c-di-GMP-I riboswitch aptamer: a 95-nucleotide sequence from Jeotgalibacillus campisalis.

[Rfam]
RNA sequence: AACAGUUAAGGGCAAACCAGUUGAAAAAUUGGGACGCAAAGCUUACAGGUCUAAGGCAUACAGUUGGAGGGUGCUAUGACGGCUGAGCCGCCUGA
Numbered sequence: 001a002a003c004a005g006u007u008a009a010g011g012g013c014a015a016a017c018c019a020g021u022u023g024a025a026a027a028a029u030u031g032g033g034a035c036g037c038a039a040a041g042c043u044u045a046c047a048g049g050u051c052u053a054a055g056g057c058a059u060a061c062a063g064u065u066g067g068a069g070g071g072u073g074c075u076a077u078g079a080c081g082g083c084u085g086a087g088c089c090g091c092c093u094g095a
Stems, first nucleotide, its partner, number of pairs: 012037002017032006041088003046085003049080003056074004
The family's consensus secondary structure is taken from published work. The source organism's lineage runs through Bacteria, Bacillati, Caryophanales, Caryophanaceae and Jeotgalibacillus. Its Rfam clan is "c-di-GMP_I riboswitch clan". The match comes from Rfam's covariance-model search (70 bits).